[Rfam]
RNA sequence: AAAAGUUUCUUGCUUCUUCCAAGAGCAAGUGGUGCGGAUGGAGGAAACUCCCGCUCAGUUUCUUGCUUCUGAUCAAAGAGCAAGUGGCGUGCAUGUAA
Numbered sequence: 001a002a003a004a005g006u007u008u009c010u011u012g013c014u015u016c017u018u019c020c021a022a023g024a025g026c027a028a029g030u031g032g033u034g035c036g037g038a039u040g041g042a043g044g045a046a047a048c049u050c051c052c053g054c055u056c057a058g059u060u061u062c063u064u065g066c067u068u069c070u071g072a073u074c075a076a077a078g079a080g081c082a083a084g085u086g087g088c089g090u091g092c093a094u095g096u097a098a
Base pairs, nucleotide, nucleotide: 009029010028011027012026013025014024015023039053040052041051043049044048055072056071057070058069062084063083064082065081066080067079
Background:
Shown here is a 98-nucleotide RNA, a member of the family "wcaG RNA". The family's consensus secondary structure is taken from published work. It is one of the family's seed sequences. Rfam classes the family as a cis-regulatory element.